[Rfam]
RNA sequence: UCUAGAUAAGGGCAACCUUUUACGAAAGUUAAAGGGCGCAAAACUACCGGCCUAACCACCAGUAAUGUUAUUCAGACACAUUGGUACAAGGCAGCGGGGUUACCAUG
Numbered sequence: 001u002c003u004a005g006a007u008a009a010g011g012g013c014a015a016c017c018u019u020u021u022a023c024g025a026a027a028g029u030u031a032a033a034g035g036g037c038g039c040a041a042a043a044c045u046a047c048c049g050g051c052c053u054a055a056c057c058a059c060c061a062g063u064a065a066u067g068u069u070a071u072u073c074a075g076a077c078a079c080a081u082u083g084g085u086a087c088a089a090g091g092c093a094g095c096g097g098g099g100u101u102a103c104c105a106u107g
Base pairs, nucleotide, nucleotide: 012039013038017034018033019032020031022029023028042101043100044099045098047097048096049095050092051091052090058085059084060083061082062081063080
RNA: c-di-GMP-I riboswitch aptamer
Organism: Aliikangiella marina